[Rfam]
The record is a 79-nucleotide RNA from Sobemovirus IYMV, which matches "sobemovirus ribosomal frameshift elemental" in Rfam. On this family, see Lucchesi et al., Eur J Biochem 2000: "Regulation of -1 ribosomal frameshifting directed by cocksfoot mottle sobemovirus genome". Lineage of the source: Viruses > Pisuviricota > Pisoniviricetes > Sobelivirales > Sobemovirus IYMV.
RNA sequence: GAAGGUGAGCCUUUAAACUACCAGCGGGCGGACCUCCUACGGGAGAGUCCGCCCUUGGAAGGCUUAUUCAGCUUGGGAA
Numbered sequence: 001g002a003a004g005g006u007g008a009g010c011c012u013u014u015a016a017a018c019u020a021c022c023a024g025c026g027g028g029c030g031g032a033c034c035u036c037c038u039a040c041g042g043g044a045g046a047g048u049c050c051g052c053c054c055u056u057g058g059a060a061g062g063c064u065u066a067u068u069c070a071g072c073u074u075g076g077g078a079a
Stems, first nucleotide, its partner, number of pairs: 026054008035044003